Rfam assigns this 178-nucleotide RNA sequence from Firmicutes bacterium AF12-30 to the family "Group II catalytic intron D1-D4-3". The source organism's lineage runs through Bacteria, Bacillati and Bacillota. A search with the family's covariance model found it, with a score of 140 bits.

[Rfam]
RNA sequence: UCCAUCGUGAGGUGGAAUCUGAAGGAAGCUGUAGGCAAAUCCUUGGUCCGACGGACAGAAAUCGCAUAUGAGGCUAGGCUUCGAGGGAUAAGCUGGCGAAAGACAGCAAAGUCUAAUAACUACCACAUUUGUAGAAGCAGAGUAAAUGCGGCGGAUUUAUGAGGAGAAAGAGCGUGCA
Numbered sequence: 001u002c003c004a005u006c007g008u009g010a011g012g013u014g015g016a017a018u019c020u021g022a023a024g025g026a027a028g029c030u031g032u033a034g035g036c037a038a039a040u041c042c043u044u045g046g047u048c049c050g051a052c053g054g055a056c057a058g059a060a061a062u063c064g065c066a067u068a069u070g071a072g073g074c075u076a077g078g079c080u081u082c083g084a085g086g087g088a089u090a091a092g093c094u095g096g097c098g099a100a101a102g103a104c105a106g107c108a109a110a111g112u113c114u115a116a117u118a119a120c121u122a123c124c125a126c127a128u129u130u131g132u133a134g135a136a137g138c139a140g141a142g143u144a145a146a147u148g149c150g151g152c153g154g155a156u157u158u159a160u161g162a163g164g165a166g167a168a169a170g171a172g173c174g175u176g177c178a
Stems, first nucleotide, its partner, number of pairs: 001016006030176003036170001040165006046156005062151006073143003078138005086114004092107004